[Rfam]
RNA: mir-29 microRNA precursor family
RNA sequence: UCAGCACCGAUUUCAAAUGGUGAAUGGGUUUUGGUUUUUGUCCUAGCACCACGAGAAAUCGGUACUGG
Numbered sequence: 001u002c003a004g005c006a007c008c009g010a011u012u013u014c015a016a017a018u019g020g021u022g023a024a025u026g027g028g029u030u031u032u033g034g035u036u037u038u039u040g041u042c043c044u045a046g047c048a049c050c051a052c053g054a055g056a057a058a059u060c061g062g063u064a065c066u067g068g
Base pairs, nucleotide, nucleotide: 001068002067003066004065007062008061009060010059011058012057013056014055018051019050020049021048022047025045026044027043028042